[Rfam]
RNA sequence: CAAAACUUUUUGCCGAAUCUAAUGAAUAUAGAAUUCAUUAGUACGGGGGAUUUUUUAUUGGGGUGAACGUUUGAUUUAUUAAGGCAGACCAGGGAACCCUCUUCCCGAACCCGUCAACUAACCUCGGAGGCUCAAUGGAGGAAAAGA
Numbered sequence: 001c002a003a004a005a006c007u008u009u010u011u012g013c014c015g016a017a018u019c020u021a022a023u024g025a026a027u028a029u030a031g032a033a034u035u036c037a038u039u040a041g042u043a044c045g046g047g048g049g050a051u052u053u054u055u056u057a058u059u060g061g062g063g064u065g066a067a068c069g070u071u072u073g074a075u076u077u078a079u080u081a082a083g084g085c086a087g088a089c090c091a092g093g094g095a096a097c098c099c100u101c102u103u104c105c106c107g108a109a110c111c112c113g114u115c116a117a118c119u120a121a122c123c124u125c126g127g128a129g130g131c132u133c134a135a136u137g138g139a140g141g142a143a144a145a146g147a
Stems, first nucleotide, its partner, number of pairs: 012131003019041009044126005053060001061112003069089004092106004